[Rfam]
RNA sequence: GUUGCAAGUUUGAGGCCACAGUAGAAAUGCUCAUGAGGCAGCUAGCCAGAUUCCAAUGAAUCUGCAAAUUCUGCU
Number, nucleotide and partner (000 for none) at each position: 001g000002u000003u000004g000005c000006a000007a000008g000009u000010u000011u000012g000013a043014g042015g039016c038017c037018a000019c000020a075021g074022u073023a072024g071025a070026a069027a000028u000029g000030c000031u000032c000033a000034u000035g000036a000037g017038g016039c015040a000041g000042c014043u013044a000045g000046c000047c064048a063049g062050a061051u060052u059053c058054c000055a000056a000057u000058g053059a052060a051061u050062c049063u048064g047065c000066a000067a000068a000069u026070u025071c024072u023073g022074c021075u020
Shown here is a 75-nucleotide sequence from Alligator mississippiensis, a member of the family "Mammalian CPEB3 ribozyme". NCBI's taxonomy places the organism under Eukaryota, Bilateria, Deuterostomia, Amniota, Alligator. The base pairs follow the family's consensus structure, which is taken from published work.